Notes: The record is a 116-nucleotide sequence from Notechis scutatus, which matches "Small nucleolar RNA SNORD90" in Rfam. It scores 45 bits against the family's covariance model. The family's RNA type in Rfam is C/D-box small nucleolar RNA. Its family is annotated with RNA processing and nucleolus in the Gene Ontology.
RNA sequence: CUGCCAGCCUUUGACGCAUCCAAUGAUGAAGUUGCAUAGGGCAGAUUCUGAGCUGGGAGCUGCGGCUCGUAAACGCUGAUCUUCUGUUUAUGCGGUCUGAGGAUGCGGCUCCGUUU
Numbered sequence: 001c002u003g004c005c006a007g008c009c010u011u012u013g014a015c016g017c018a019u020c021c022a023a024u025g026a027u028g029a030a031g032u033u034g035c036a037u038a039g040g041g042c043a044g045a046u047u048c049u050g051a052g053c054u055g056g057g058a059g060c061u062g063c064g065g066c067u068c069g070u071a072a073a074c075g076c077u078g079a080u081c082u083u084c085u086g087u088u089u090a091u092g093c094g095g096u097c098u099g100a101g102g103a104u105g106c107g108g109c110u111c112c113g114u115u116u
Stems, first nucleotide, its partner, number of pairs: 013109001015107007031096007039085003044080001047079002050076001052074001
Rfam describes the family as follows. snoRNA HBII-295 belongs to the family of C/D snoRNAs. It is the human orthologue of the mouse MBII-295 and has no identified RNA target.